[Rfam]
RNA sequence: GGGUGGCCGGGUCCGCUGAGUCGGCAGCACUCGGACUACGUGUUCCUCUGCAGCAGGGACAGGCCCAGCAGCCGCCC
Numbered sequence: 001g002g003g004u005g006g007c008c009g010g011g012u013c014c015g016c017u018g019a020g021u022c023g024g025c026a027g028c029a030c031u032c033g034g035a036c037u038a039c040g041u042g043u044u045c046c047u048c049u050g051c052a053g054c055a056g057g058g059a060c061a062g063g064c065c066c067a068g069c070a071g072c073c074g075c076c077c
Stems, first nucleotide, its partner, number of pairs: 001077007009066005016034006043059005
RNA: bZIP non canonical Hac1/Xbp1 intron
Organism: Sphenodon punctatus